[Rfam]
The record is a 109-nucleotide RNA sequence from Paenibacillus wynnii, which matches "Guanidine-I riboswitch aptamer" in Rfam. Rfam's curators write: This family represents a conserved RNA structure found upstream of the ykkC and yxkD genes in Bacillus subtilis and related genes in other bacteria. The function of this family is unclear although it has been suggested that it may function to switch on efflux pumps and detoxification systems in response to harmful environmental molecules. The pairing is the family consensus, mapped onto this sequence. A reference for the family is Barrick et al. (2004), "New RNA motifs suggest an expanded scope for riboswitches in bacterial genetic control", Proc Natl Acad Sci U S A.
RNA sequence: UACUUGGUUUUCUAGGGUUCCGCAGCUGAUUCCGGCUGGUCUGGUCCGAGGGAAAACGCACGGAUAAGAAUCGUCCGUGUCUACACGGAGGGAUAAAAGCCCGGGAGGU
Number, nucleotide and partner (000 for none) at each position: 001u000002a000003c000004u000005u000006g000007g057008u056009u055010u054011u053012c052013u000014a000015g047016g046017g000018u000019u000020c044021c043022g041023c038024a037025g036026c035027u034028g033029a000030u000031u000032c000033c028034g027035g026036c025037u024038g023039g000040u000041c022042u000043g021044g020045u000046c016047c015048g000049a000050g000051g000052g012053a011054a010055a009056a008057c007058g080059c079060a078061c077062g076063g075064a074065u073066a000067a000068g000069a000070a000071u000072c000073g065074u064075c063076c062077g061078u060079g059080u058081c000082u000083a000084c104085a000086c107087g000088g000089a000090g102091g101092g100093a000094u000095a000096a000097a000098a000099g000100c092101c091102c090103g000104g084105g000106a000107g086108g000109u000